The family of this 72-nucleotide RNA sequence from Nezara viridula is "mir-932 microRNA precursor family". Its family is annotated with RISC complex and miRNA-mediated post-transcriptional gene silencing in the Gene Ontology. Rfam 15.1 lists 136 matches to the family in 136 species.

RNA sequence: CUUGCCUUCAAUUCCGUAGUGCAUUGCAGUGUAGGGGGUAGCCUGCAAGCUUUGCGGAAAUGAGGGUAGGCA
Number, nucleotide and partner (000 for none) at each position: 001c000002u000003u000004g000005c000006c065007u064008u063009c062010a061011a000012u000013u058014c057015c056016g055017u054018a000019g000020u000021g050022c049023a000024u048025u047026g046027c045028a044029g000030u000031g000032u000033a000034g000035g000036g000037g000038g000039u000040a000041g000042c000043c000044u028045g027046c026047a025048a024049g022050c021051u000052u000053u000054g017055c016056g015057g014058a013059a000060a000061u010062g009063a008064g007065g006066g000067u000068a000069g000070g000071c000072a000